[Rfam]
RNA: Glycine riboswitch aptamer
RNA sequence: AGACCCCGCGUCGGGAGAAUCCGGUGGAAACAUCGGUGCCGAAGGAGCAACCGCCCCGGUAAACUCUCAGGCUCAUGGACCGCACGGGGAAA
Numbered sequence: 001a002g003a004c005c006c007c008g009c010g011u012c013g014g015g016a017g018a019a020u021c022c023g024g025u026g027g028a029a030a031c032a033u034c035g036g037u038g039c040c041g042a043a044g045g046a047g048c049a050a051c052c053g054c055c056c057c058g059g060u061a062a063a064c065u066c067u068c069a070g071g072c073u074c075a076u077g078g079a080c081c082g083c084a085c086g087g088g089g090a091a092a
Stems, first nucleotide, its partner, number of pairs: 006087003010083001012082003021036004038072003041068002045066003051059002